[Rfam]
RNA sequence: UUUCCCAGUUGACUACCACAUUUUCUCCUAAAUAGAUUUUAGUGGCUAUGCUUAUGGGAUAGACUAAAAUUGCCAUGAUCUGAAGAGGGAGGAUUUGUUUGUGUCCUCCUCCUAUAUGAAAUGGCUGGACAAAGUUGG
Numbered sequence: 001u002u003u004c005c006c007a008g009u010u011g012a013c014u015a016c017c018a019c020a021u022u023u024u025c026u027c028c029u030a031a032a033u034a035g036a037u038u039u040u041a042g043u044g045g046c047u048a049u050g051c052u053u054a055u056g057g058g059a060u061a062g063a064c065u066a067a068a069a070u071u072g073c074c075a076u077g078a079u080c081u082g083a084a085g086a087g088g089g090a091g092g093a094u095u096u097g098u099u100u101g102u103g104u105c106c107u108c109c110u111c112c113u114a115u116a117u118g119a120a121a122u123g124g125c126u127g128g129a130c131a132a133a134g135u136u137g138g
Stems, first nucleotide, its partner, number of pairs: 004058004016045004072125004090113004
This 138-nucleotide RNA sequence from Equus caballus belongs to the Rfam family "Small nucleolar RNA SNORA29". Rfam's curators put it in the seed alignment. On this family, see Huttenhofer et al., EMBO J 2001: "RNomics: an experimental approach that identifies 201 candidates for novel, small, non-messenger RNAs in mouse".